[Rfam]
RNA sequence: UUAUAUGCAAAGACGGAUUAUAGUAGUAUGGAUUGUCCCUGUUGUAGAGAGCUAGCGGUGGUGGAAGCUAGUACAUACGAUCAUGCGAAGUACACAAAUCUUGAGCAUCCUCUGAAGAGGCGGCUUAACCAAGUCGUUAUGAAUUGAAGUGGCAAGCGGAAGCUUGCAACAAGGGUGGUACCGCGAGAUUAGACCUCGUCCCUUUU
Number, nucleotide and partner (000 for none) at each position: 001u000002u000003a000004u000005a000006u000007g106008c105009a000010a000011a000012g000013a000014c000015g101016g100017a099018u098019u000020a000021u000022a000023g000024u000025a000026g086027u085028a084029u083030g082031g081032a000033u000034u000035g000036u000037c000038c000039c000040u075041g074042u073043u000044g000045u000046a000047g000048a000049g000050a000051g072052c071053u070054a069055g068056c067057g000058g000059u000060g000061g000062u000063g000064g000065a000066a000067g056068c055069u054070a053071g052072u051073a042074c041075a040076u000077a000078c000079g000080a000081u031082c030083a029084u028085g027086c026087g000088a000089a000090g000091u000092a000093c000094a000095c000096a000097a000098a018099u017100c016101u015102u000103g000104a000105g008106c007107a000108u000109c120110c119111u118112c117113u000114g000115a000116a000117g112118a111119g110120g109121c136122g135123g134124c133125u132126u000127a000128a000129c000130c000131a000132a125133g124134u123135c122136g121137u000138u000139a000140u000141g000142a000143a000144u000145u000146g000147a000148a000149g000150u000151g000152g167153c166154a165155a164156g163157c162158g000159g000160a000161a000162g157163c156164u155165u154166g153167c152168a000169a000170c000171a000172a203173g202174g201175g200176u000177g000178g000179u000180a000181c000182c000183g199184c198185g197186a196187g195188a000189u000190u000191a000192g000193a000194c000195c187196u186197c185198g184199u183200c175201c174202c173203u172204u000205u000206u000

Background:
T-box leader: a 206-nucleotide RNA sequence from Radiobacillus deserti. Rfam classes the family as a cis-regulatory leader. Rfam's curators write: Uncharged tRNA acts as the effector for transcription antitermination of genes in the T-box leader family. T-boxes are found upstream of many aminoacyl-tRNA synthetase genes and some amino acid biosynthetic genes usually in Gram-positive bacteria. The anticodon of a specific tRNA base pairs to a specifier sequence within the T-box motif, and the NCCA acceptor tail of the tRNA base pairs to a conserved bulge in the T-box antiterminator hairpin. Rfam links the family to the GO term tRNA binding. The literature on the family includes a 1994 paper in J Bacteriol by Grundy et al., "Interaction between the acceptor end of tRNA and the T box stimulates antitermination in the Bacillus subtilis tyrS gene: a new role for the discriminator base".